[Rfam]
RNA sequence: AUGCAGGCUUAGCCUAGUGGUUACUUCGUAGCAAUUCCAAGUCAACUGACAGCGGAACGCUUUGACCACGGGCGCCGUCCUGCAGCGUU
Numbered sequence: 001a002u003g004c005a006g007g008c009u010u011a012g013c014c015u016a017g018u019g020g021u022u023a024c025u026u027c028g029u030a031g032c033a034a035u036u037c038c039a040a041g042u043c044a045a046c047u048g049a050c051a052g053c054g055g056a057a058c059g060c061u062u063u064g065a066c067c068a069c070g071g072g073c074g075c076c077g078u079c080c081u082g083c084a085g086c087g088u089u
Stems, first nucleotide, its partner, number of pairs: 002084006012073004017069004025056005
RNA: Vault RNA
Organism: Argiope bruennichi